[Rfam]
RNA sequence: GAACUUCAAGGGCAAAAUCGCUGAAAAGUGAUGACGCAAAGCUAUAGGGGCCUCCGUUUAAUAACGAAGUCAGCCAGCUACCAUC
Dot-bracket structure: ...........((...((((((....))))))...))..((((...(((((....(((....)))...)))..))))))......
RNA: c-di-GMP-I riboswitch aptamer
Organism: Bacillus sp. 1NLA3E